The record is a 181-nucleotide part of an RNA from Aphis gossypii, which matches "Eukaryotic small subunit ribosomal RNA" in Rfam.
RNA sequence: CACCGCCCGUCGCUACUACCGAUUGAACGACCGCAGUGAGGUCUUCGGACUGGACGCGCGUUAUUCGGCCCCCCCGGGGGCUGGGUCGUCGCGCGACCGGGAAGAUGACCGAACUCGGCCGUUUAGAGGAAGUAAAAGUCGUAACAAGGUUUCCGUAGGUGAACCUGCGGAAGGAUCAUUA
Numbered sequence: 001c002a003c004c005g006c007c008c009g010u011c012g013c014u015a016c017u018a019c020c021g022a023u024u025g026a027a028c029g030a031c032c033g034c035a036g037u038g039a040g041g042u043c044u045u046c047g048g049a050c051u052g053g054a055c056g057c058g059c060g061u062u063a064u065u066c067g068g069c070c071c072c073c074c075c076g077g078g079g080g081c082u083g084g085g086u087c088g089u090c091g092c093g094c095g096a097c098c099g100g101g102a103a104g105a106u107g108a109c110c111g112a113a114c115u116c117g118g119c120c121g122u123u124u125a126g127a128g129g130a131a132g133u134a135a136a137a138g139u140c141g142u143a144a145c146a147a148g149g150u151u152u153c154c155g156u157a158g159g160u161g162a163a164c165c166u167g168c169g170g171a172a173g174g175a176u177c178a179u180u181a
Stems, first nucleotide, its partner, number of pairs: 003148001005145001008141002011138001014134004019129002023125001025124005031118003035115003040110004045105002050100004055095006061088001063086009150173010

For this family Rfam cites "Crystal structure of the ribosome at 5.5 A resolution" (Yusupov et al., Science, 2001).